RNA sequence: AAAAGCCCGAGGGCAACUGACGCCGAAAGGUGAGGAAAGUCCCCCCUCCACAGCUGGCUGCAACCGGUGAAAGCCGGUAUGCCGAGAGGCAUGGUUAAGAGACAAGAAAUAAACGGUUCCAUGUGAAGGAUGAUUUGAAAAAAUGACGUUUCAUGGAGUGCUGAUGAGAACUCUCCCUGCAGGGAGCAAGUCUAAAUUGAAUCGUUGACUACAGCUGCUAGAUUCAGGUAAGACGCAUAGUCGAAUGUUGCCAACCGAAAGGCUAACAGAAGGAGGCUUACUCCGGGCAUUU
Numbered sequence: 001a002a003a004a005g006c007c008c009g010a011g012g013g014c015a016a017c018u019g020a021c022g023c024c025g026a027a028a029g030g031u032g033a034g035g036a037a038a039g040u041c042c043c044c045c046c047u048c049c050a051c052a053g054c055u056g057g058c059u060g061c062a063a064c065c066g067g068u069g070a071a072a073g074c075c076g077g078u079a080u081g082c083c084g085a086g087a088g089g090c091a092u093g094g095u096u097a098a099g100a101g102a103c104a105a106g107a108a109a110u111a112a113a114c115g116g117u118u119c120c121a122u123g124u125g126a127a128g129g130a131u132g133a134u135u136u137g138a139a140a141a142a143a144u145g146a147c148g149u150u151u152c153a154u155g156g157a158g159u160g161c162u163g164a165u166g167a168g169a170a171c172u173c174u175c176c177c178u179g180c181a182g183g184g185a186g187c188a189a190g191u192c193u194a195a196a197u198u199g200a201a202u203c204g205u206u207g208a209c210u211a212c213a214g215c216u217g218c219u220a221g222a223u224u225c226a227g228g229u230a231a232g233a234c235g236c237a238u239a240g241u242c243g244a245a246u247g248u249u250g251c252c253a254a255c256c257g258a259a260a261g262g263c264u265a266a267c268a269g270a271a272g273g274a275g276g277c278u279u280a281c282u283c284c285g286g287g288c289a290u291u292u
Stems, first nucleotide, its partner, number of pairs: 001292003005288005010282002012252006021032004037279003041276002044273002046186004051217006058182005063078005079092005093177002098174004114163003117158007135143002190234004199225005
Shown here is a 292-nucleotide RNA from Ferroplasma acidarmanus, a member of the family "Archaeal RNase P". About the family: Ribonuclease P (RNase P) is a ubiquitous endoribonuclease, found in archaea, bacteria and eukarya as well as chloroplasts and mitochondria. Its best characterised activity is the generation of mature 5'-ends of tRNAs by cleaving the 5'-leader elements of precursor-tRNAs. Cellular RNase Ps are ribonucleoproteins. RNA from bacterial RNase Ps retains its catalytic activity in the absence of the protein subunit, i.e. it is a ribozyme. Isolated eukaryotic and archaeal RNase P RNA has not been shown to retain its catalytic function, but is still essential for the catalytic activity of the holoenzyme. Although the archaeal and eukaryotic holoenzymes have a much greater protein content than the bacterial ones, the RNA cores from all the three lineages are homologous -- helices corresponding to P1, P2, P3, P4, and P10/11 are common to all cellular RNase P RNAs. Yet, there is considerable sequence variation, particularly among the eukaryotic RNAs. The sequence is in the family's curated seed alignment. Rfam links the family to the GO terms multimeric ribonuclease P complex, ribonuclease P activity and tRNA processing. The family is grouped with related families in Rfam's "RNaseP clan". On this family, see Frank and Pace, Annu Rev Biochem 1998: "Ribonuclease P: unity and diversity in a tRNA processing ribozyme".